The family of this 89-nucleotide sequence from Paenibacillus sp. Root444D2 is "c-di-GMP-I riboswitch aptamer". GEMM was predicted in a large-scale screen for bacterial structured RNA regulatory elements. Genes associated with GEMM are involved in a diverse array of functions, including chemotaxis regulation, signal transduction, secretion and chitin. It scores 82 bits against the family's covariance model. The family's consensus secondary structure is taken from published work.
[Rfam]
Nucleotides: 089
Base pairs, nucleotide, nucleotide: 012037013036017032018031019030020029021028022027040083041082042081043080045079046078047077048074049073050072055068056067057066058065
Number, partner (000 for none) and nucleotide at each position: 001000u002000a003000u004000c005000g006000u007000a008000a009000a010000a011000g012037g013036c014000a015000a016000a017032c018031u019030u020029a021028u022027c023000g024000a025000a026000a027022g028021g029020u030019a031018a032017g033000g034000a035000c036013g037012c038000a039000a040083a041082g042081c043080u044000g045079c046078a047077g048074a049073u050072c051000u052000a053000a054000g055068g056067u057066u058065g059000c060000c061000c062000u063000c064000g065058c066057a067056a068055c069000a070000a071000u072050g073049a074048u075000g076000g077047c078046u079045g080043g081042g082041c083040u084000g085000c086000c087000g088000a089000c